[Rfam]
RNA sequence: AUCUUUGUGCUCGGGCAAGUGAUUAAUCCAGUGAAGUGUAUACUGAGGAUAAUCAAAUUGCUGGUUGCAAACUAUUACCAAAUGCUUCCAUCGCCCUGCGGGGUUGUUGGGGAAUUUCUGAGCCCCCAGGGG
Numbered sequence: 001a002u003c004u005u006u007g008u009g010c011u012c013g014g015g016c017a018a019g020u021g022a023u024u025a026a027u028c029c030a031g032u033g034a035a036g037u038g039u040a041u042a043c044u045g046a047g048g049a050u051a052a053u054c055a056a057a058u059u060g061c062u063g064g065u066u067g068c069a070a071a072c073u074a075u076u077a078c079c080a081a082a083u084g085c086u087u088c089c090a091u092c093g094c095c096c097u098g099c100g101g102g103g104u105u106g107u108u109g110g111g112g113a114a115u116u117u118c119u120g121a122g123c124c125c126c127c128a129g130g131g132g
Base pairs, nucleotide, nucleotide: 021054022053023052024051025050027049028048029047035044036043037042086112087111088110090107091106093104094103095102096101124131125130
Record summary: U4 spliceosomal RNA: a 132-nucleotide RNA from Puccinia graminis. The family has 177 seed sequences and 32,178 matches in Rfam 15.1. The family is grouped with related families in Rfam's "U4 clan". Rfam's curators put it in the seed alignment. Taxonomically the source falls in Puccinia graminis f. sp. tritici (Eukaryota, Dikarya, Pucciniomycetes, Puccinia).